[Rfam]
RNA sequence: CCCCUGUGAUGAGUUGCCAUGCUAAUACUGAGACACUAGGUAGGGAGUUUUACCCUGCAUUGGGUGUUGUUGAGAUAAACUCUACUUCUCCUAAAUCUACCUGAGGGGC
Numbered sequence: 001c002c003c004c005u006g007u008g009a010u011g012a013g014u015u016g017c018c019a020u021g022c023u024a025a026u027a028c029u030g031a032g033a034c035a036c037u038a039g040g041u042a043g044g045g046a047g048u049u050u051u052a053c054c055c056u057g058c059a060u061u062g063g064g065u066g067u068u069g070u071u072g073a074g075a076u077a078a079a080c081u082c083u084a085c086u087u088c089u090c091c092u093a094a095a096u097c098u099a100c101c102u103g104a105g106g107g108g109c
Base pairs, nucleotide, nucleotide: 001108002107003106004105041057042056043055044054045053
Notes:
Rfam assigns this 109-nucleotide RNA sequence from Microcebus murinus to the family "Small nucleolar RNA U6-53/MBII-28". Lineage of the source: Eukaryota > Metazoa > Bilateria > Primates > Microcebus. The sequence is in the family's curated seed alignment. By type it is a C/D-box small nucleolar RNA. The literature on the family includes a 2001 paper in EMBO J by Huttenhofer et al., "RNomics: an experimental approach that identifies 201 candidates for novel, small, non-messenger RNAs in mouse". The family has 25 seed sequences and 780 matches in Rfam 15.1.